[Rfam]
RNA sequence: UUUGCCUUCGAAUAACCAGAAGGCUGUAAUGAAUAAGCGCCGUCUGGUUCAGACAAAGGCAUAGAUCAUUUAAAUCCGAAUCGGUUUGAGGGUGUGGAACUUAAUUUCUUUCUGGAGGUGUUCCUUUCCUAGAUAGAUUUGGACAUUC
Numbered sequence: 001u002u003u004g005c006c007u008u009c010g011a012a013u014a015a016c017c018a019g020a021a022g023g024c025u026g027u028a029a030u031g032a033a034u035a036a037g038c039g040c041c042g043u044c045u046g047g048u049u050c051a052g053a054c055a056a057a058g059g060c061a062u063a064g065a066u067c068a069u070u071u072a073a074a075u076c077c078g079a080a081u082c083g084g085u086u087u088g089a090g091g092g093u094g095u096g097g098a099a100c101u102u103a104a105u106u107u108c109u110u111u112c113u114g115g116a117g118g119u120g121u122u123c124c125u126u127u128c129c130u131a132g133a134u135a136g137a138u139u140u141g142g143a144c145a146u147u148c
Base pairs, nucleotide, nucleotide: 003061004060005059006058007057008056014049015048016047017046018045019044020043023040024039026038077141078140079139080138081137082136084113088110089109090108092107122133123132
This 148-nucleotide sequence from Turnera subulata belongs to the Rfam family "Small nucleolar RNA snoR138". By type it is an H/ACA-box small nucleolar RNA. Pairs were carried over by alignment from the consensus structure, which was predicted with mfold. It scores 73 bits against the family's covariance model. For this family Rfam cites "Mining small RNA sequencing data: a new approach to identify small nucleolar RNAs in Arabidopsis" (Chen and Wu, Nucleic Acids Res, 2009).